Histidine operon leader: a 123-nucleotide sequence from Erwinia sp. Leaf53. By type it is a cis-regulatory leader. Pairs were carried over by alignment from the consensus structure, which is taken from published work. About the family: At least 6 amino acid operons are known to be regulated by attenuation. Its family is annotated with histidine biosynthetic process in the Gene Ontology.
[Rfam]
Nucleotides: 123
Base pairs, nucleotide, nucleotide: 008043009042010041011039012038013037014036017034018033019032020031021030044068045067046066047065048064049063050062051061084120088116089115090114091113092112093111094110095109096108097107098106099105
Number, partner (000 for none) and nucleotide at each position: 001000u002000c003000a004000u005000c006000a007000c008043c009042a010041c011039c012038a013037u014036c015000a016000c017034c018033c019032u020031g021030a022000c023000u024000a025000g026000u027000c028000u029000u030021u031020c032019a033018g034017g035000c036014g037013a038012u039011g040000u041010g042009u043008g044068c045067u046066g047065g048064a049063a050062g051061a052000c053000g054000u055000u056000c057000a058000g059000g060000a061051u062050c063049u064048u065047c066046c067045a068044g069000c070000g071000g072000u073000g074000c075000a076000g077000a078000a079000c080000g081000c082000g083000a084120a085000c086000u087000c088116a089115g090114c091113c092112c093111c094110c095109g096108g097107a098106a099105g100000a101000u102000c103000a104000c105099c106098u107097u108096c109095c110094g111093g112092g113091g114090g115089c116088u117000u118000u119000u120084u121000u122000u123000u